[Rfam]
RNA sequence: GGUCGCACAUUUGAGGCCACAGCAGACGUGCUCGCUGUCCGGCCCCGUCAGAUUCCAGUGAAUCUGUGAAAUCUAUA
Numbered sequence: 001g002g003u004c005g006c007a008c009a010u011u012u013g014a015g016g017c018c019a020c021a022g023c024a025g026a027c028g029u030g031c032u033c034g035c036u037g038u039c040c041g042g043c044c045c046c047g048u049c050a051g052a053u054u055c056c057a058g059u060g061a062a063u064c065u066g067u068g069a070a071a072u073c074u075a076u077a
Stems, first nucleotide, its partner, number of pairs: 013045001015044004022076001024074003028040001030038001049066007

Rfam assigns this 77-nucleotide RNA sequence from Alligator mississippiensis to the family "Mammalian CPEB3 ribozyme". The base pairs follow the family's consensus structure, which is taken from published work. The source organism's lineage runs through Eukaryota, Eumetazoa, Bilateria, Alligatoridae and Alligator.